[Rfam]
RNA: Small nucleolar RNA SNORA15
Organism: Podarcis lilfordi
RNA sequence: GCAUGGGUGAAUUCUGUGUUGGCUUUGACAGUGGCCAAUGGAGUCAGACACCAUGCAAAAUGAAAGUUCCUGCUGUGGACACUCCUAGCGGUAUGCUGCAUAUUUGGUAGCCUGCCCAAGUCUGGAAUGGAUACAGGU
Numbered sequence: 001g002c003a004u005g006g007g008u009g010a011a012u013u014c015u016g017u018g019u020u021g022g023c024u025u026u027g028a029c030a031g032u033g034g035c036c037a038a039u040g041g042a043g044u045c046a047g048a049c050a051c052c053a054u055g056c057a058a059a060a061u062g063a064a065a066g067u068u069c070c071u072g073c074u075g076u077g078g079a080c081a082c083u084c085c086u087a088g089c090g091g092u093a094u095g096c097u098g099c100a101u102a103u104u105u106g107g108u109a110g111c112c113u114g115c116c117c118a119a120g121u122c123u124g125g126a127a128u129g130g131a132u133a134c135a136g137g138u
Stems, first nucleotide, its partner, number of pairs: 001056006014043002017040003068131003071127001073125003077121001085120002088117001090116004095111004